[Rfam]
RNA sequence: CCACGUUGCGCGGGAGAGCACUCUCCCGUAGAGAGUCGCCGAAGGCGUAACCCCCCGGAAUCGCUCAGGCAAAAGGACCGCGCACAGCAU
Numbered sequence: 001c002c003a004c005g006u007u008g009c010g011c012g013g014g015a016g017a018g019c020a021c022u023c024u025c026c027c028g029u030a031g032a033g034a035g036u037c038g039c040c041g042a043a044g045g046c047g048u049a050a051c052c053c054c055c056c057g058g059a060a061u062c063g064c065u066c067a068g069g070c071a072a073a074a075g076g077a078c079c080g081c082g083c084a085c086a087g088c089a090u
Stems, first nucleotide, its partner, number of pairs: 007084007020036004038070003041066002045064003051058002